[Rfam]
RNA sequence: CUCUGGAGAGAGCUUGUAUAAGCCACCCACGAGGAAGUAAACCGUUUCGAGUAUGGGAUUGGUUGAAAACUUUCUGGUAACAGGACAGAG
Numbered sequence: 001c002u003c004u005g006g007a008g009a010g011a012g013c014u015u016g017u018a019u020a021a022g023c024c025a026c027c028c029a030c031g032a033g034g035a036a037g038u039a040a041a042c043c044g045u046u047u048c049g050a051g052u053a054u055g056g057g058a059u060u061g062g063u064u065g066a067a068a069a070c071u072u073u074c075u076g077g078u079a080a081c082a083g084g085a086c087a088g089a090g
Stems, first nucleotide, its partner, number of pairs: 001090005012023004025078003029073001032072003038065002
RNA: Glycine riboswitch aptamer
Organism: Schinkia azotoformans